[Rfam]
A member of the RNA family "Group II catalytic intron D1-D4-1" from Anoxybacteroides amylolyticum, 86 nucleotides long. Rfam's curators write: Group II introns are found in rRNA, tRNA and mRNA of organelles in fungi, plants and protists, and also in mRNA in bacteria.
RNA sequence: CAACCUAUCCAGUGAUGGAUAGCUGAACAAUCAGAAGUCAGCAGAGGUCAUAGUACCAUCCUUGCUCGAGAAAGGGUGGGAAGGAC
Numbered sequence: 001c002a003a004c005c006u007a008u009c010c011a012g013u014g015a016u017g018g019a020u021a022g023c024u025g026a027a028c029a030a031u032c033a034g035a036a037g038u039c040a041g042c043a044g045a046g047g048u049c050a051u052a053g054u055a056c057c058a059u060c061c062u063u064g065c066u067c068g069a070g071a072a073a074g075g076g077u078g079g080g081a082a083g084g085a086c
Stems, first nucleotide, its partner, number of pairs: 001025002005022007038045002047086003056079008